[Rfam]
RNA sequence: AAGCCAGUGGAAUGGUAGCUGCAGAGCUAAUAUUGUUCUGCAGAUAUUAAGGAAAAAGCUGGCAAAAGCAAAGCCACCGUACGAGCCUUACUGCCUUAGAAUGACACUAAGGUUCCUGGAAAUGGCUACAUUG
Numbered sequence: 001a002a003g004c005c006a007g008u009g010g011a012a013u014g015g016u017a018g019c020u021g022c023a024g025a026g027c028u029a030a031u032a033u034u035g036u037u038c039u040g041c042a043g044a045u046a047u048u049a050a051g052g053a054a055a056a057a058g059c060u061g062g063c064a065a066a067a068g069c070a071a072a073g074c075c076a077c078c079g080u081a082c083g084a085g086c087c088u089u090a091c092u093g094c095c096u097u098a099g100a101a102u103g104a105c106a107c108u109a110a111g112g113u114u115c116c117u118g119g120a121a122a123u124g125g126c127u128a129c130a131u132u133g
Stems, first nucleotide, its partner, number of pairs: 003063005019043004073126004085113006093105001095103001
This 133-nucleotide RNA sequence from Microcaecilia unicolor belongs to the Rfam family "Small nucleolar RNA SNORA33". It scores 83 bits against the family's covariance model. Taxonomically the source falls in Microcaecilia (Eukaryota, Deuterostomia, Gnathostomata, Teleostomi). ACA33 is a member of the H/ACA class of snoRNA that guide the sites of modification of uridines to pseudouridines.